[Rfam]
RNA sequence: AAUAGCCAAAGUAUGAUGAUUCAAUUGGAUGUGUGAAUGGAGAAUUUCAUUCUCUCUAAUGAACUUUAAACUUUAUUUGGCAAUAAUUUCUGACUUUGCUAGU
Number, nucleotide and partner (000 for none) at each position: 001a103002a000003u101004a100005g099006c098007c000008a097009a096010a095011g094012u000013a000014u000015g000016a000017u000018g000019a000020u000021u000022c000023a000024a000025u000026u000027g000028g000029a000030u000031g000032u000033g000034u000035g000036a000037a000038u000039g000040g000041a000042g000043a000044a000045u000046u000047u000048c000049a000050u000051u000052c000053u000054c000055u000056c000057u000058a000059a000060u000061g000062a000063a000064c000065u000066u000067u000068a000069a000070a000071c000072u000073u000074u000075a000076u000077u000078u000079g000080g000081c000082a000083a000084u000085a000086a000087u000088u000089u000090c000091u000092g000093a000094c011095u010096u009097u008098g006099c005100u004101a003102g000103u001
RNA: Small nucleolar RNA Z266